A member of the RNA family "c-di-AMP riboswitch aptamer (ydaO/yuaA leader)" from Salinispora tropica, 131 nucleotides long. This family represents a conserved RNA structure found upstream of the ydaO and yuaA genes in Bacillus subtilis and related genes in other bacteria. It is one of the family's seed sequences. The organism belongs to Salinispora tropica, within Bacteria.
RNA sequence: GCGGGGCCACCGCCUAAUCACCUGCCAGGGUGAGCCGGGGAACCAGGUACCUGGGGUGCAUCCGCGUCAGCGGUAGGGAUCUUCCGUCCCGAACCCGUCAGCUAACCCGGUCGGUGGUUGACGGAAGGACA
Numbered sequence: 001g002c003g004g005g006g007c008c009a010c011c012g013c014c015u016a017a018u019c020a021c022c023u024g025c026c027a028g029g030g031u032g033a034g035c036c037g038g039g040g041a042a043c044c045a046g047g048u049a050c051c052u053g054g055g056g057u058g059c060a061u062c063c064g065c066g067u068c069a070g071c072g073g074u075a076g077g078g079a080u081c082u083u084c085c086g087u088c089c090c091g092a093a094c095c096c097g098u099c100a101g102c103u104a105a106c107c108c109g110g111u112c113g114g115u116g117g118u119u120g121a122c123g124g125a126a127g128g129a130c131a
Base pairs, nucleotide, nucleotide: 011116012115013114014113018033019032020031021030022029034111035110036109037108038107039106044053045052054096055095056094062073063072064071065070076090077089078088079087